[Rfam]
RNA sequence: UUGCAAUGAUUUGUACCGAUUCAUUGAUAGGUUAGAAGAUUGAUUUACUACUUUGAGUCGGUACGAAUCAUAUCAU
Numbered sequence: 001u002u003g004c005a006a007u008g009a010u011u012u013g014u015a016c017c018g019a020u021u022c023a024u025u026g027a028u029a030g031g032u033u034a035g036a037a038g039a040u041u042g043a044u045u046u047a048c049u050a051c052u053u054u055g056a057g058u059c060g061g062u063a064c065g066a067a068u069c070a071u072a073u074c075a076u
Stems, first nucleotide, its partner, number of pairs: 006071018026051001030049003034045002